[Rfam]
A member of the RNA family "Guanidine-II riboswitch aptamer (mini-ykkC)" from Noviherbaspirillum pedocola, 48 nucleotides long. Its family is annotated with regulation of gene expression in the Gene Ontology. The match comes from Rfam's covariance-model search (37 bits). Simpler in structure and has fewer highly conserved nucleotide positions than the ykkC-yxkD leader. Despite this each of its two stem-loop structures directly bind free guanidine.
RNA sequence: GGCACGGGACGACCCCUGCCGCAUCGAAUUCUUCGCGGGACGACCCGC
Numbered sequence: 001g002g003c004a005c006g007g008g009a010c011g012a013c014c015c016c017u018g019c020c021g022c023a024u025c026g027a028a029u030u031c032u033u034c035g036c037g038g039g040a041c042g043a044c045c046c047g048c
Base pairs, nucleotide, nucleotide: 001020002019003018004017006015007014008013035048036047037046038045039044